[Rfam]
RNA sequence: CUCCGCGAAAACUAUUGAGGUAGUGCCUCGGACGAACACCCUAGGGGGUAGAGCACUGGAUGGAUGCGGGGGUCGCGAGAUCUACCAAUUCUAACCAAACUCCGAAUACCUAGGAGUGAUAUCCGGGAGACAGACGGCGGGUGCUAAGGUCCGUCGUCAAAAGGGAAACAGCCCUGACCUACAGCUAAGGUCCCCAAGUCACGUCUAAGUGGGAAAGCAUGUGGGAAUCCCAAAACAACCAGGAGGUUGGCUUAGAAGCAGCCAUCCUUUAAAGAAAGCGUAACAGCUCACUGGUCUAAACAAGGGUUCCUGCGGCGAAGAUGUAACGGGGCUCAAGACGUGCACCGAAGCUUAGGGUGUGUACUUUUGUACACGCGGUAGCGGAGCGUUCCGUAAGCCUGCGAAGCGAUCUGGUAAUGGGUCGUGGAGGUAUCGGAAGUGCGAAU
Numbered sequence: 001c002u003c004c005g006c007g008a009a010a011a012c013u014a015u016u017g018a019g020g021u022a023g024u025g026c027c028u029c030g031g032a033c034g035a036a037c038a039c040c041c042u043a044g045g046g047g048g049u050a051g052a053g054c055a056c057u058g059g060a061u062g063g064a065u066g067c068g069g070g071g072g073u074c075g076c077g078a079g080a081u082c083u084a085c086c087a088a089u090u091c092u093a094a095c096c097a098a099a100c101u102c103c104g105a106a107u108a109c110c111u112a113g114g115a116g117u118g119a120u121a122u123c124c125g126g127g128a129g130a131c132a133g134a135c136g137g138c139g140g141g142u143g144c145u146a147a148g149g150u151c152c153g154u155c156g157u158c159a160a161a162a163g164g165g166a167a168a169c170a171g172c173c174c175u176g177a178c179c180u181a182c183a184g185c186u187a188a189g190g191u192c193c194c195c196a197a198g199u200c201a202c203g204u205c206u207a208a209g210u211g212g213g214a215a216a217g218c219a220u221g222u223g224g225g226a227a228u229c230c231c232a233a234a235a236c237a238a239c240c241a242g243g244a245g246g247u248u249g250g251c252u253u254a255g256a257a258g259c260a261g262c263c264a265u266c267c268u269u270u271a272a273a274g275a276a277a278g279c280g281u282a283a284c285a286g287c288u289c290a291c292u293g294g295u296c297u298a299a300a301c302a303a304g305g306g307u308u309c310c311u312g313c314g315g316c317g318a319a320g321a322u323g324u325a326a327c328g329g330g331g332c333u334c335a336a337g338a339c340g341u342g343c344a345c346c347g348a349a350g351c352u353u354a355g356g357g358u359g360u361g362u363a364c365u366u367u368u369g370u371a372c373a374c375g376c377g378g379u380a381g382c383g384g385a386g387c388g389u390u391c392c393g394u395a396a397g398c399c400u401g402c403g404a405a406g407c408g409a410u411c412u413g414g415u416a417a418u419g420g421g422u423c424g425u426g427g428a429g430g431u432a433u434c435g436g437a438a439g440u441g442c443g444a445a446u
Stems, first nucleotide, its partner, number of pairs: 001386006011024005026129001027127006036120001040114006051103001052101002057097003061093004068086002070083005133158010163174003178356004183352003189346003198343001200342006217316002221313010238295005244268003249263003269273001274289001278287002357376008387441001389438005397431003406425008
RNA: Bacterial large subunit ribosomal RNA, nucleotides 841 to 1286
Organism: Sphingomonas sp. OV641